[Rfam]
RNA sequence: UCCGGUGUUCUGCCACCGGUACCCUACCAGACCGUGCGUUGGGGGUAACCCUGGGGUGCGAAGCGUCUGGGACACCGUAGCCUCCGUCUUUCGGGACGGGCGACGGACCCGCGAGGGAAAGUCGCGACUGCCAGCCUCAUGGCGGUCGGGAGC
Numbered sequence: 001u002c003c004g005g006u007g008u009u010c011u012g013c014c015a016c017c018g019g020u021a022c023c024c025u026a027c028c029a030g031a032c033c034g035u036g037c038g039u040u041g042g043g044g045g046u047a048a049c050c051c052u053g054g055g056g057u058g059c060g061a062a063g064c065g066u067c068u069g070g071g072a073c074a075c076c077g078u079a080g081c082c083u084c085c086g087u088c089u090u091u092c093g094g095g096a097c098g099g100g101c102g103a104c105g106g107a108c109c110c111g112c113g114a115g116g117g118a119a120a121g122u123c124g125c126g127a128c129u130g131c132c133a134g135c136c137u138c139a140u141g142g143c144g145g146u147c148g149g150g151a152g153c
Stems, first nucleotide, its partner, number of pairs: 002019006028069005033060005039054006084099006100125004109116002127146006
RNA: Group II catalytic intron D1-D4-7